[Rfam]
RNA sequence: UUCAGUGCCUGAGCACAGGGAGAUACCAUGACCAUGAAGGUGGUUUUCCCAGGAGGGAGGCUUAUCCACUGCAAUCCAGAUGUGCUGACCCCUGCGAUUUCCACAAAUGUGGGAAACUCGACUGCCUAAAUUUGUGGUAGUGGGGGUUCUGUUCAUGUUUUCCCCUC
Numbered sequence: 001u002u003c004a005g006u007g008c009c010u011g012a013g014c015a016c017a018g019g020g021a022g023a024u025a026c027c028a029u030g031a032c033c034a035u036g037a038a039g040g041u042g043g044u045u046u047u048c049c050c051a052g053g054a055g056g057g058a059g060g061c062u063u064a065u066c067c068a069c070u071g072c073a074a075u076c077c078a079g080a081u082g083u084g085c086u087g088a089c090c091c092c093u094g095c096g097a098u099u100u101c102c103a104c105a106a107a108u109g110u111g112g113g114a115a116a117c118u119c120g121a122c123u124g125c126c127u128a129a130a131u132u133u134g135u136g137g138u139a140g141u142g143g144g145g146g147u148u149c150u151g152u153u154c155a156u157g158u159u160u161u162c163c164c165c166u167c
Stems, first nucleotide, its partner, number of pairs: 013125003018050006025044005051093003055090001057089001059086003063082004095120003098116001099114002102111002142166005150157002
RNA: U1 spliceosomal RNA
Organism: Puma concolor